[Rfam]
About this RNA: Shown here is an 81-nucleotide RNA from Vibrio eleionomae, a member of the family "antisense RNA of dnaA mRNA". Pairs were carried over by alignment from the consensus structure, which was predicted with RNAfold. A search with the family's covariance model found it, with a score of 56 bits.
RNA sequence: UUUUGCAUCUGGCUUGUUAUCAACAAUGGCAUUACCAACAGCAUGCAAUAAGUGUGUUUUACCUAAACCUGUACCACCAUA
Numbered sequence: 001u002u003u004u005g006c007a008u009c010u011g012g013c014u015u016g017u018u019a020u021c022a023a024c025a026a027u028g029g030c031a032u033u034a035c036c037a038a039c040a041g042c043a044u045g046c047a048a049u050a051a052g053u054g055u056g057u058u059u060u061a062c063c064u065a066a067a068c069c070u071g072u073a074c075c076a077c078c079a080u081a
Stems, first nucleotide, its partner, number of pairs: 004043003010037003016032002020029002052077003056074002061072002